[Rfam]
RNA sequence: CUGGGGUGCAUUGUAGUUGCAUUGCAUGUAUGAAUGAAAAGGUGCAAUGCUUCUGCAGUACAACACCGG
Numbered sequence: 001c002u003g004g005g006g007u008g009c010a011u012u013g014u015a016g017u018u019g020c021a022u023u024g025c026a027u028g029u030a031u032g033a034a035u036g037a038a039a040a041g042g043u044g045c046a047a048u049g050c051u052u053c054u055g056c057a058g059u060a061c062a063a064c065a066c067c068g069g
Stems, first nucleotide, its partner, number of pairs: 001069004007062002010059007019050001021048007
RNA: mir-33 microRNA precursor family